This 47-nucleotide RNA from Coptis chinensis belongs to the Rfam family "Plastid-ycf3 group II-D1 intron". It scores 60 bits against the family's covariance model. The source organism's lineage runs through Eukaryota, Streptophyta, Embryophyta, Magnoliopsida and Coptis. The family has 385 seed sequences and 1,488 matches in Rfam 15.1. Its family is annotated with Group II intron splicing in the Gene Ontology. From the family's description: Plastid rpl16 is a non-coding RNA (ncRNA) recognised in plastids. It was recognised in and intronic region of a ribosome rpl16 gene.
[Rfam]
RNA sequence: AUUCCUUACGUCGUGUAUCCUCGAUUGAUGCGACCUCAGACGCUUCA
Numbered sequence: 001a002u003u004c005c006u007u008a009c010g011u012c013g014u015g016u017a018u019c020c021u022c023g024a025u026u027g028a029u030g031c032g033a034c035c036u037c038a039g040a041c042g043c044u045u046c047a
Base pairs, nucleotide, nucleotide: 010025011024012023013022032044034042